The record is a 103-nucleotide RNA from Clostridium sp. SM-530-WT-3G, which matches "Purine riboswitch aptamer" in Rfam. Rfam's curators write: Riboswitches are metabolite binding domains within certain messenger RNAs that serve as precision sensors for their corresponding targets. Its Rfam clan is "Purine riboswitches".
RNA sequence: AAAAACGCUUUAUUAUUCACUUAUAUAAGUCUUGCAAUAUGGGGAGGAUGUUUCUACUGAGCUACCGUAAAUUGCUCAUACUAUAAGUGCUUGCGAAAGUUUU
Numbered sequence: 001a002a003a004a005a006c007g008c009u010u011u012a013u014u015a016u017u018c019a020c021u022u023a024u025a026u027a028a029g030u031c032u033u034g035c036a037a038u039a040u041g042g043g044g045a046g047g048a049u050g051u052u053u054c055u056a057c058u059g060a061g062c063u064a065c066c067g068u069a070a071a072u073u074g075c076u077c078a079u080a081c082u083a084u085a086a087g088u089g090c091u092u093g094c095g096a097a098a099g100u101u102u103u
Base pairs, nucleotide, nucleotide: 018089019088020087021086022085023084024083025082029049030048031047032046033045035043058078059077060076061075062074064072